[Rfam]
Nucleotides: 165
Base pairs, nucleotide, nucleotide: 008158009157010156011155016076017075018074019073020072021071023068024067032060033059034058035057036056037055039053080108081107082106083105084104086103087102088101089100090099091098109135110134111133112132113131114130115129117128119126
Number, partner (000 for none) and nucleotide at each position: 001000c002000a003000a004000a005000a006000c007000a008158u009157u010156a011155g012000a013000g014000g015000a016076g017075c018074u019073u020072u021071u022000a023068a024067c025000a026000u027000g028000a029000g030000u031000a032060a033059u034058u035057a036056a037055u038000c039053u040000a041000g042000c043000a044000g045000g046000c047000a048000u049000g050000c051000g052000u053039a054000a055037a056036u057035u058034a059033g060032u061000g062000a063000a064000a065000g066000g067024g068023u069000a070000u071021a072020a073019a074018a075017g076016c077000c078000g079000a080108a081107a082106c083105a084104c085000a086103a087102u088101a089100a090099a091098g092000u093000g094000g095000c096000a097000g098091c099090u100089u101088u102087a103086u104084g105083u106082g107081u108080u109135g110134g111133u112132a113131g114130a115129a116000a117128a118000a119126c120000a121000u122000a123000a124000a125000a126119g127000a128117u129115u130114u131113c132112u133111a134110c135109u136000c137000u138000u139000u140000g141000g142000g143000a144000a145000a146000c147000c148000a149000u150000u151000g152000g153000c154000g155011c156010u157009a158008a159000a160000u161000a162000u163000u164000u165000g
Shown here is a 165-nucleotide RNA sequence from Mycoplasmopsis citelli, a member of the family "Lysine riboswitch aptamer". The family's consensus secondary structure is taken from published work.